Background:
Shown here is a 59-nucleotide RNA from Brachybacterium sp. SGAir0954, a member of the family "msiK RNA". The source organism's lineage runs through Bacteria, Bacillati, Actinomycetota, Dermabacteraceae and Brachybacterium. By type it is a cis-regulatory element.
[Rfam]
RNA sequence: AGCAGUACUACUUCACAACGGAUCGUCCGGCACGUACCUGCCGGUGAAGGGAAUCACCA
Numbered sequence: 001a002g003c004a005g006u007a008c009u010a011c012u013u014c015a016c017a018a019c020g021g022a023u024c025g026u027c028c029g030g031c032a033c034g035u036a037c038c039u040g041c042c043g044g045u046g047a048a049g050g051g052a053a054u055c056a057c058c059a
Base pairs, nucleotide, nucleotide: 009051011049012048013047014046015045027044028043029042030041031040032039